[Rfam]
RNA sequence: CUGUUUUAAGUGGGGGUCAUAGCAGAAGCGUCCACGUCGCGACCCCUGGGCACUGGUUCAUAGAACUUGCUAAUUCUGCU
Numbered sequence: 001c002u003g004u005u006u007u008a009a010g011u012g013g014g015g016g017u018c019a020u021a022g023c024a025g026a027a028g029c030g031u032c033c034a035c036g037u038c039g040c041g042a043c044c045c046c047u048g049g050g051c052a053c054u055g056g057u058u059c060a061u062a063g064a065a066c067u068u069g070c071u072a073a074u075u076c077u078g079c080u
Stems, first nucleotide, its partner, number of pairs: 013046006021080007028040003053069001055067005
A member of the RNA family "Mammalian CPEB3 ribozyme" from Oryctes borbonicus, 80 nucleotides long. It scores 51 bits against the family's covariance model. The family has 14 seed sequences and 5,706 matches in Rfam 15.1. The mammalian CPEB3 ribozyme is a self cleaving RNA located in the second intron of the CPEB3 gene which belongs to a family of genes regulating messenger RNA polyadenylation. This ribozyme is highly conserved and found only in mammals. The CPEB3 ribozyme is structurally and biochemically related to the human hepatitis delta virus (HDV) ribozyme and the HDV ribozyme is proposed to have arisen from the human transcriptome.